[Rfam]
RNA sequence: AGCUUUGCACAGUGGCAGUAUCGUAGCCAAUGAGGUUUAUCCGAGGCGCGAUUAUUGCUAAUUGAAAAAAUAGUAGACUAAACCCAUUAAGAGUUUCAGAUUAAAUACACGUGCAUUUAAAUACAUACAAAUUUUAGGAUUUUUUGUUCCAGCUCUGUGAAAA
Numbered sequence: 001a002g003c004u005u006u007g008c009a010c011a012g013u014g015g016c017a018g019u020a021u022c023g024u025a026g027c028c029a030a031u032g033a034g035g036u037u038u039a040u041c042c043g044a045g046g047c048g049c050g051a052u053u054a055u056u057g058c059u060a061a062u063u064g065a066a067a068a069a070a071u072a073g074u075a076g077a078c079u080a081a082a083c084c085c086a087u088u089a090a091g092a093g094u095u096u097c098a099g100a101u102u103a104a105a106u107a108c109a110c111g112u113g114c115a116u117u118u119a120a121a122u123a124c125a126u127a128c129a130a131a132u133u134u135u136a137g138g139a140u141u142u143u144u145u146g147u148u149c150c151a152g153c154u155c156u157g158u159g160a161a162a163a
Base pairs, nucleotide, nucleotide: 020052021051022050023049024048026047027046028045034042035041088127089126091124093122094121095120096119098117142163143162144161145160
RNA: U4 spliceosomal RNA